[Rfam]
RNA sequence: GGCGUGCCACAACGGCUUCCUGACGUGGCACUUGGUAUUUAAUUGGAGCA
Numbered sequence: 001g002g003c004g005u006g007c008c009a010c011a012a013c014g015g016c017u018u019c020c021u022g023a024c025g026u027g028g029c030a031c032u033u034g035g036u037a038u039u040u041a042a043u044u045g046g047a048g049c050a
Base pairs, nucleotide, nucleotide: 004031005030006029007028008027009026010025013022014021015049016048017047019046020045

This 50-nucleotide RNA from Sulfitobacter sp. SK011 belongs to the Rfam family "SAM/SAH riboswitch aptamer". The family's consensus secondary structure is taken from published work. A reference for the family is Weickhmann et al. (2019), "The structure of the SAM/SAH-binding riboswitch", Nucleic Acids Res. Rfam links the family to the GO terms regulation of gene expression and S-adenosylmethionine metabolic process.